Rfam assigns this 205-nucleotide RNA from Criibacterium bergeronii to the family "raiA RNA". It scores 184 bits against the family's covariance model. Lineage of the source: Bacteria > Bacillati > Clostridia > Peptostreptococcales > Criibacterium. The family's consensus secondary structure is taken from published work.
RNA sequence: AUUUGCAAGGUCUGCGGUUGAAAGUUCAAGCCAGAUGCAGGCAAAAGAAUCCACGUAAGCUUUAGCAAAAAGCCUAAAGUGAGCAUGGUGCAUCUUAGAAGUAAGUCCUGCCACUUUAAAGUGAGAGAGCAAUUAGUGAGAGCAAACCUCAAGCAAAAGCUCCAGCAGGCGAGUGUGGGGUCAAAGACCGGGUCAGCUUGCAAGU
Numbered sequence: 001a002u003u004u005g006c007a008a009g010g011u012c013u014g015c016g017g018u019u020g021a022a023a024g025u026u027c028a029a030g031c032c033a034g035a036u037g038c039a040g041g042c043a044a045a046a047g048a049a050u051c052c053a054c055g056u057a058a059g060c061u062u063u064a065g066c067a068a069a070a071a072g073c074c075u076a077a078a079g080u081g082a083g084c085a086u087g088g089u090g091c092a093u094c095u096u097a098g099a100a101g102u103a104a105g106u107c108c109u110g111c112c113a114c115u116u117u118a119a120a121g122u123g124a125g126a127g128a129g130c131a132a133u134u135a136g137u138g139a140g141a142g143c144a145a146a147c148c149u150c151a152a153g154c155a156a157a158a159g160c161u162c163c164a165g166c167a168g169g170c171g172a173g174u175g176u177g178g179g180g181u182c183a184a185a186g187a188c189c190g191g192g193u194c195a196g197c198u199u200g201c202a203a204g205u
Stems, first nucleotide, its partner, number of pairs: 001205009012196003015190005028176001030174001031041001033095007050088002058080001061077002086183001107169005112123004127162004136154002142148001
Dot-bracket structure: (((((((((..((((((((........(.([.(((((((.]........((......(..((.............))..).....[)))))))))...........(((((((((....))))...((((.....((....(.....)....))....))))..)))))....).)......]..)))))...))))))))))))